RNA sequence: UCUUCUUGCCCUUAGGGAAGAGACCCUAUCAAUAUUGCCUCUGCUUUUGAUGUCAGAGUAGUAGUGCAAUAUUGCUUAUAGGGUCUUUUCCUUGAGACACC
Dot-bracket structure: ...................(((((((((((((((((((..(((((..............))))).)))))))))...))))))))))..............

Source information: Rfam assigns this 101-nucleotide sequence from Eleutherodactylus coqui to the family "mir-454 microRNA precursor family". The match comes from Rfam's covariance-model search (78 bits). The family's consensus secondary structure was predicted with RNAalifold.